[Rfam]
RNA: Na+ riboswitch aptamer (DUF1646)
RNA sequence: GGUUGGCGGAUUUAUCCGUUUCAAGAAUUCGGCUUUUAGGGUGGAGAGCU
Numbered sequence: 001g002g003u004u005g006g007c008g009g010a011u012u013u014a015u016c017c018g019u020u021u022c023a024a025g026a027a028u029u030c031g032g033c034u035u036u037u038a039g040g041g042u043g044g045a046g047a048g049c050u
Base pairs, nucleotide, nucleotide: 003024004023005022006019007018008017009016010015031050032049033048034047035046036045037044